This 232-nucleotide RNA from a bacterium belongs to the Rfam family "permuted transfer-messenger RNA".

[Rfam]
RNA sequence: GCUUGAAGCGGACUGAAAGACGGUCUGGACCGGGGCGCGAUACCCCGCGCCUCCACCAUAAAUGCUUGGUUUAUAACUAGUUUUUAGAACAAGCAUUUAUGAUGGGGGCGAAAUAGGAUCGACAGACGUGUAAUAGGAUAAGCUGAGAUUGCCGGGUGAGGCCCGAUAUAGGCUCAUUUUUAUAACUGCUGUGAAUGAUAAUUCACCGGUUGAAGCUCGCCUCGCGGCGUAG
Numbered sequence: 001g002c003u004u005g006a007a008g009c010g011g012a013c014u015g016a017a018a019g020a021c022g023g024u025c026u027g028g029a030c031c032g033g034g035g036c037g038c039g040a041u042a043c044c045c046c047g048c049g050c051c052u053c054c055a056c057c058a059u060a061a062a063u064g065c066u067u068g069g070u071u072u073a074u075a076a077c078u079a080g081u082u083u084u085u086a087g088a089a090c091a092a093g094c095a096u097u098u099a100u101g102a103u104g105g106g107g108g109c110g111a112a113a114u115a116g117g118a119u120c121g122a123c124a125g126a127c128g129u130g131u132a133a134u135a136g137g138a139u140a141a142g143c144u145g146a147g148a149u150u151g152c153c154g155g156g157u158g159a160g161g162c163c164c165g166a167u168a169u170a171g172g173c174u175c176a177u178u179u180u181u182a183u184a185a186c187u188g189c190u191g192u193g194a195a196u197g198a199u200a201a202u203u204c205a206c207c208g209g210u211u212g213a214a215g216c217u218c219g220c221c222u223c224g225c226g227g228c229g230u231a232g
Stems, first nucleotide, its partner, number of pairs: 001149001002147001012139001014137001021128002025125003031047005048110007153165004
Rfam's curators put it in the seed alignment.